About this RNA:
Rfam assigns this 127-nucleotide sequence from Molossus molossus to the family "Small nucleolar RNA SNORA25". About the family: ACA25 is a member of the H/ACA class of snoRNA that guide the sites of modification of uridines to pseudouridines. Pairs were carried over by alignment from the consensus structure, which was predicted with RNAfold. Taxonomically the source falls in Molossus (Eukaryota, Euteleostomi, Mammalia, Theria).

RNA sequence: AGGUCAUUUCAAAGAGUGUUCAGGGGACCCAAACUAGGAGCUCUUAAUGCAGUGACCUAAGAUUUAAGUUCUCCAUAGGAUGUAACAGAUACUCAAUAGUGCUGUGUUUUCCUGAGGAAAUAGAAGA
Numbered sequence: 001a002g003g004u005c006a007u008u009u010c011a012a013a014g015a016g017u018g019u020u021c022a023g024g025g026g027a028c029c030c031a032a033a034c035u036a037g038g039a040g041c042u043c044u045u046a047a048u049g050c051a052g053u054g055a056c057c058u059a060a061g062a063u064u065u066a067a068g069u070u071c072u073c074c075a076u077a078g079g080a081u082g083u084a085a086c087a088g089a090u091a092c093u094c095a096a097u098a099g100u101g102c103u104g105u106g107u108u109u110u111c112c113u114g115a116g117g118a119a120a121u122a123g124a125a126g127a
Stems, first nucleotide, its partner, number of pairs: 002057006014045003018041004026035001070120001072118003077113004085105004090101004
Source information: The family's RNA type in Rfam is H/ACA-box small nucleolar RNA.